[Rfam]
RNA sequence: CAAACAAGUCGUCUUGUCGCUUUAUUAUUUUAAUAAAGAGGAAAGUCCGGACACCUCAGAGCAGCAUAGCGGGUAAUGCCCGUCGUCCCAUUUUUUUUUGGGAAAGGACAAGUGCAACAGAAAGGAUGUACAGGUAAGGCUGUAGUGAAAUCAGGUAAACUCUAUGCGGUGAAAUGCCAAGUAUACUAACAAUUAAGGGCGGCUCGUCCAAUGUUAGAGGGUAGGCAGCUAAGAUUUAAUUGGUAACAAUUAAACCAGAUAAAUGACAAGAAUCUUUAUUGAUUUAAAGAUACAGAAUCCGGCUUAUAGACUUGUUUUAUUU
Numbered sequence: 001c002a003a004a005c006a007a008g009u010c011g012u013c014u015u016g017u018c019g020c021u022u023u024a025u026u027a028u029u030u031u032a033a034u035a036a037a038g039a040g041g042a043a044a045g046u047c048c049g050g051a052c053a054c055c056u057c058a059g060a061g062c063a064g065c066a067u068a069g070c071g072g073g074u075a076a077u078g079c080c081c082g083u084c085g086u087c088c089c090a091u092u093u094u095u096u097u098u099u100g101g102g103a104a105a106g107g108a109c110a111a112g113u114g115c116a117a118c119a120g121a122a123a124g125g126a127u128g129u130a131c132a133g134g135u136a137a138g139g140c141u142g143u144a145g146u147g148a149a150a151u152c153a154g155g156u157a158a159a160c161u162c163u164a165u166g167c168g169g170u171g172a173a174a175u176g177c178c179a180a181g182u183a184u185a186c187u188a189a190c191a192a193u194u195a196a197g198g199g200c201g202g203c204u205c206g207u208c209c210a211a212u213g214u215u216a217g218a219g220g221g222u223a224g225g226c227a228g229c230u231a232a233g234a235u236u237u238a239a240u241u242g243g244u245a246a247c248a249a250u251u252a253a254a255c256c257a258g259a260u261a262a263a264u265g266a267c268a269a270g271a272a273u274c275u276u277u278a279u280u281g282a283u284u285u286a287a288a289g290a291u292a293c294a295g296a297a298u299c300c301g302g303c304u305u306a307u308a309g310a311c312u313u314g315u316u317u318u319a320u321u322u
Stems, first nucleotide, its partner, number of pairs: 002317009011307001012271007020038008043305003047302005052171004059205004064167005069083005084106001086103005107162002112160002114156002175227004186217005197209004235254008
A member of the RNA family "Bacterial RNase P class A", 322 nucleotides long. From the family's description: Ribonuclease P (RNase P) is a ubiquitous endoribonuclease, found in archaea, bacteria and eukarya as well as chloroplasts and mitochondria. A search with the family's covariance model found it, with a score of 194 bits. Its family is annotated with ribonuclease P activity, dimeric ribonuclease P complex and tRNA processing in the Gene Ontology.